[Rfam]
RNA sequence: GCCGAAGUGGUGAAAUUGGUAGACACGCAACGUUCAGGGCGUUGUGCUCGAAAGGGCAUGGGGGUUCGAGUCCCCCCUUCGGCA
Numbered sequence: 001g002c003c004g005a006a007g008u009g010g011u012g013a014a015a016u017u018g019g020u021a022g023a024c025a026c027g028c029a030a031c032g033u034u035c036a037g038g039g040c041g042u043u044g045u046g047c048u049c050g051a052a053a054g055g056g057c058a059u060g061g062g063g064g065u066u067c068g069a070g071u072c073c074c075c076c077c078u079u080c081g082g083c084a
Stems, first nucleotide, its partner, number of pairs: 001083007010026003028044005060076005
A member of the RNA family "tRNA" from Dictyobacter alpinus, 84 nucleotides long. Gene Ontology term of the family: triplet codon-amino acid adaptor activity. A search with the family's covariance model found it, with a score of 52 bits. The family's RNA type in Rfam is transfer RNA. The base pairs follow the family's consensus structure, which is taken from published work. Lineage of the source: Bacteria > Bacillati > Ktedonobacteria > Dictyobacteraceae > Dictyobacter.